The record is a 96-nucleotide sequence from Dioscorea zingiberensis, which matches "mir-172 microRNA precursor family" in Rfam. NCBI's taxonomy places the organism under Eukaryota, Streptophytina, Spermatophyta, Dioscoreaceae, Dioscorea. For this family Rfam cites "Computational Identification of Plant MicroRNAs and Their Targets, Including a Stress-Induced miRNA" (Jones-Rhoades and Bartel, Mol Cell, 2004). mir-172 has been experimentally verified in Arabidopsis thaliana. This family is thought to target mRNAs coding for APETALA2-like transcription factors.
RNA sequence: AUCUUUGCUGGUGGAGCAUCAUCAAGAUUCACAAAUAUAUAAUCAAUCUCUAUAUCUAUUGUUUGAGAAUCUUGAUGAUGCUGCACUGGCAACUAU
Numbered sequence: 001a002u003c004u005u006u007g008c009u010g011g012u013g014g015a016g017c018a019u020c021a022u023c024a025a026g027a028u029u030c031a032c033a034a035a036u037a038u039a040u041a042a043u044c045a046a047u048c049u050c051u052a053u054a055u056c057u058a059u060u061g062u063u064u065g066a067g068a069a070u071c072u073u074g075a076u077g078a079u080g081c082u083g084c085a086c087u088g089g090c091a092a093c094u095a096u
Stems, first nucleotide, its partner, number of pairs: 010087004015082016032065006